[Rfam]
RNA sequence: GAUUCUUGAAGGAUAAGAUUAAGACCUUAAUUCACGAAUC
Numbered sequence: 001g002a003u004u005c006u007u008g009a010a011g012g013a014u015a016a017g018a019u020u021a022a023g024a025c026c027u028u029a030a031u032u033c034a035c036g037a038a039u040c
Stems, first nucleotide, its partner, number of pairs: 001040005006034001008033001009028004

A member of the RNA family "S4-Flavobacteria ribosomal protein leader" from Winogradskyella arenosi, 40 nucleotides long. NCBI's taxonomy places the organism under Bacteria, Pseudomonadati, Bacteroidota, Flavobacteriales, Winogradskyella. The match comes from Rfam's covariance-model search (36 bits). The family is grouped with related families in Rfam's "Ribosomal Protein S4 Leader clan".